This 248-nucleotide RNA sequence from Cohnella faecalis belongs to the Rfam family "T-box leader". Its family is annotated with tRNA binding in the Gene Ontology. Pairs were carried over by alignment from the consensus structure, which is taken from published work. About the family: Uncharged tRNA acts as the effector for transcription antitermination of genes in the T-box leader family. T-boxes are found upstream of many aminoacyl-tRNA synthetase genes and some amino acid biosynthetic genes usually in Gram-positive bacteria. The anticodon of a specific tRNA base pairs to a specifier sequence within the T-box motif, and the NCCA acceptor tail of the tRNA base pairs to a conserved bulge in the T-box antiterminator hairpin. The organism belongs to Cohnella, within Bacteria.
Nucleotides: 248
Base pairs, nucleotide, nucleotide: 007103008102015098016097017096018095025086026085027084028083029082038073040071050070051069052068053067054066106144107143108142109141110140111139112138146156147155148154173209174208175207176206177205178204179203214245215244216243217242225241226240227239228238229237
Number, partner (000 for none) and nucleotide at each position: 001000u002000a003000a004000c005000u006000u007103g008102c009000g010000a011000u012000g013000a014000u015098c016097g017096g018095g019000a020000c021000a022000g023000u024000a025086c026085g027084c028083c029082a030000a031000u032000g033000a034000a035000u036000g037000g038073a039000a040071c041000g042000a043000a044000c045000a046000g047000c048000g049000a050070g051069c052068c053067g054066g055000g056000g057000c058000g059000g060000u061000g062000g063000g064000a065000g066054c067053c068052g069051g070050c071040g072000g073038u074000u075000u076000c077000c078000a079000g080000c081000g082029u083028g084027g085026c086025g087000g088000a089000a090000g091000c092000g093000c094000a095018c096017c097016c098015g099000g100000g101000a102008g103007u104000u105000g106144a107143c108142g109141g110140c111139u112138u113000g114000a115000a116000g117000g118000c119000g120000c121000g122000g123000c124000g125000a126000a127000c128000g129000c130000g131000c132000u133000g134000g135000g136000u137000a138112g139111g140110g141109c142108u143107g144106u145000c146156c147155g148154g149000u150000c151000a152000c153000a154148c155147c156146g157000u158000u159000a160000u161000c162000g163000u164000g165000u166000u167000c168000g169000a170000g171000c172000g173209g174208c175207u176206u177205u178204c179203u180000a181000u182000u183000g184000c185000g186000u187000a188000a189000c190000c191000u192000c193000g194000c195000g196000g197000u198000u199000a200000u201000c202000g203179g204178g205177a206176a207175a208174g209173c210000c211000a212000g213000a214245a215244g216243a217242g218000u219000g220000g221000c222000a223000c224000c225241g226240c227239g228238g229237a230000c231000u232000u233000a234000g235000c236000c237229u238228c239227c240226g241225u242217c243216u244215c245214u246000u247000g248000u